[Rfam]
A member of the RNA family "ASpks TB sRNA" from Actinocrispum wychmicini, 69 nucleotides long. A search with the family's covariance model found it, with a score of 60 bits. The family's consensus secondary structure is taken from published work. The family's RNA type in Rfam is antisense RNA.

RNA sequence: CUUGACCGACCCCAGCCACAACGGCGUCGGCCGGUCCUUGCCGUACGUCGCCAGAAUCGCCUGCGCCUC
Number, nucleotide and partner (000 for none) at each position: 001c000002u000003u000004g000005a000006c000007c000008g000009a000010c000011c000012c000013c000014a000015g025016c024017c023018a000019c000020a000021a000022c000023g017024g016025c015026g000027u000028c000029g000030g064031c063032c059033g058034g000035u000036c000037c054038u053039u000040g000041c050042c000043g048044u000045a000046c000047g000048u043049c000050g041051c000052c000053a038054g037055a000056a000057u000058c033059g032060c000061c000062u000063g031064c030065g000066c000067c000068u000069c000